[Rfam]
RNA sequence: GGUACAGACUGACCAAAACACACAUGUAUCGACACAUACUCCGGGGUGCCUUAUACAGGUCGGUAGUAUGGGAUACAUGGAGGCUCAAC
Numbered sequence: 001g002g003u004a005c006a007g008a009c010u011g012a013c014c015a016a017a018a019c020a021c022a023c024a025u026g027u028a029u030c031g032a033c034a035c036a037u038a039c040u041c042c043g044g045g046g047u048g049c050c051u052u053a054u055a056c057a058g059g060u061c062g063g064u065a066g067u068a069u070g071g072g073a074u075a076c077a078u079g080g081a082g083g084c085u086c087a088a089c
Base pairs, nucleotide, nucleotide: 023079024078025077026076027075028074029073030072035070036069037068038067039066041063042062043061048060049059050058051057